RNA sequence: GAAGAGCCCUACCGGAAAGGAAGUAGCGAAUCCAUCCUGACCUUGAGUCUUGCAGGGACAUCGCGAGGUGUUUCUUGAAGCGUAGACAGAGGCAUCGGUGGGCGGGGCGAUUGAGCUGCGAAAAGCCCGUAGAUCAGGAUGCCGAACUCCAUUCCGAGUAGGAGGAAGGCGACACGGCAGCCGCGAUAUACGCGAGUGGCUAUCCGGUCCUGCGUAGUCUGAGAACC
Number, nucleotide and partner (000 for none) at each position: 001g000002a000003a000004g000005a000006g000007c000008c000009c000010u000011a000012c039013c000014g037015g036016a035017a000018a000019g033020g032021a031022a000023g000024u195025a000026g193027c192028g000029a000030a000031u021032c020033c019034a000035u016036c015037c014038u000039g012040a000041c092042c091043u090044u089045g000046a000047g087048u086049c085050u084051u082052g081053c077054a076055g075056g074057g072058a071059c070060a069061u068062c067063g000064c000065g000066a000067g062068g061069u060070g059071u058072u057073u000074c056075u055076u054077g053078a000079a000080g000081c052082g051083u000084a050085g049086a048087c047088a000089g044090a043091g042092g041093c000094a000095u000096c000097g000098g000099u000100g000101g000102g000103c000104g000105g000106g000107g000108c000109g000110a000111u000112u221113g219114a000115g218116c217117u216118g215119c214120g213121a000122a000123a000124a000125g000126c000127c000128c000129g000130u000131a000132g000133a000134u000135c212136a211137g210138g209139a208140u207141g170142c169143c168144g000145a000146a000147c164148u163149c162150c161151a000152u000153u000154c000155c000156g000157a000158g000159u000160a000161g150162g149163a148164g147165g000166a000167a000168g143169g142170c141171g000172a000173c000174a000175c206176g205177g204178c000179a201180g200181c199182c198183g197184c196185g000186a000187u000188a000189u000190a000191c000192g027193c026194g000195a024196g184197u183198g182199g181200c180201u179202a000203u000204c177205c176206g175207g140208u139209c138210c137211u136212g135213c120214g119215u118216a117217g116218u115219c113220u000221g112222a000223g000224a000225a000226c000227c000
Description:
Shown here is a 227-nucleotide RNA sequence from Edaphobacter modestus, a member of the family "Group II catalytic intron D1-D4-6". Gene Ontology term of the family: Group II intron splicing. The base pairs follow the family's consensus structure. Group II introns are found in rRNA, tRNA and mRNA of organelles in fungi, plants and protists, and also in mRNA in bacteria. The family has 174 seed sequences and 1,617 matches in Rfam 15.1.